Rfam assigns this 69-nucleotide sequence from Evansella caseinilytica to the family "Bacillaceae-1 RNA".
Rfam classes the family as a small RNA.
NCBI's taxonomy places the organism under Bacteria, Bacillati, Bacillota, Bacillaceae, Evansella.
RNA sequence: CAUCCUCCAAUUCCGCCUAAGUACCGCUCACGUCCUGUGAGCAACGGCGGAAUGUCGCCAUCCUGGCUC
Numbered sequence: 001c002a003u004c005c006u007c008c009a010a011u012u013c014c015g016c017c018u019a020a021g022u023a024c025c026g027c028u029c030a031c032g033u034c035c036u037g038u039g040a041g042c043a044a045c046g047g048c049g050g051a052a053u054g055u056c057g058c059c060a061u062c063c064u065g066g067c068u069c
Stems, first nucleotide, its partner, number of pairs: 011052007027041005057067003